About this RNA
The family of this 143-nucleotide RNA from Streptococcus suis is "THF (Tetrahydrofolate) riboswitch aptamer". Tetrahydrofolate (THF) riboswitch was first reported for Ames et al. as an RNA motif in 5' untranslated (5'-UTR)regions of folate transport and biosynthesis genes in Firmicutes genomes. Taxonomically the source falls in Streptococcus suis (Bacteria, Bacillota, Lactobacillales, Streptococcus). Rfam's curators put it in the seed alignment. The family's consensus secondary structure is taken from published work. A reference for the family is Huang et al. (2011), "Long-range pseudoknot interactions dictate the regulatory response in the tetrahydrofolate riboswitch", Proc Natl Acad Sci U S A.
RNA sequence: ACAGAGUAGAUGGUUUGCGUCAAGUGUAUGUGGAUGGGGUGUUGCCACAUAACGAAGCUGAUCUUUGCUUGCAUCUGAUGUCUCCUAGAGUAGGAACAUUGGUCCUGGCUGAGAGUAGCGCGGUAAACCAUUGCAUCCGCUGU
Numbered sequence: 001a002c003a004g005a006g007u008a009g010a011u012g013g014u015u016u017g018c019g020u021c022a023a024g025u026g027u028a029u030g031u032g033g034a035u036g037g038g039g040u041g042u043u044g045c046c047a048c049a050u051a052a053c054g055a056a057g058c059u060g061a062u063c064u065u066u067g068c069u070u071g072c073a074u075c076u077g078a079u080g081u082c083u084c085c086u087a088g089a090g091u092a093g094g095a096a097c098a099u100u101g102g103u104c105c106u107g108g109c110u111g112a113g114a115g116u117a118g119c120g121c122g123g124u125a126a127a128c129c130a131u132u133g134c135a136u137c138c139g140c141u142g143u
Base pairs, nucleotide, nucleotide: 001143002142003141004140009132010131011130012129013128014127015126016125017124018122019121020120024053025052027051028050029049030048031047032046033045037138038137039136040135041134057119058118059117060116